[Rfam]
RNA: mir-973 microRNA precursor family
RNA sequence: UCACUUCUCGUGUUUCGACGUUUGAACUUAGAUUUGUAUUUUUUUCAUAAAUCUGUUCAUUCCUCGACACUAGGAGUUU
Numbered sequence: 001u002c003a004c005u006u007c008u009c010g011u012g013u014u015u016c017g018a019c020g021u022u023u024g025a026a027c028u029u030a031g032a033u034u035u036g037u038a039u040u041u042u043u044u045u046c047a048u049a050a051a052u053c054u055g056u057u058c059a060u061u062c063c064u065c066g067a068c069a070c071u072a073g074g075a076g077u078u079u
Stems, first nucleotide, its partner, number of pairs: 003077006010070003015067004020062001023059005030054006